[Rfam]
RNA sequence: UAAUAGGAAAGCGAUGGAGUUCGCUUUUUGGCAGGUAAAGCCAAUAAACUUCUCCCCGUGAGAUAAUAACUCCUACCCUCUU
Numbered sequence: 001u002a003a004u005a006g007g008a009a010a011g012c013g014a015u016g017g018a019g020u021u022c023g024c025u026u027u028u029u030g031g032c033a034g035g036u037a038a039a040g041c042c043a044a045u046a047a048a049c050u051u052c053u054c055c056c057c058g059u060g061a062g063a064u065a066a067u068a069a070c071u072c073c074u075a076c077c078c079u080c081u082u
Stems, first nucleotide, its partner, number of pairs: 010025004016073006051063004
Fluoride riboswitch aptamer (crcB RNA motif): an 82-nucleotide RNA from Thermosyntropha lipolytica.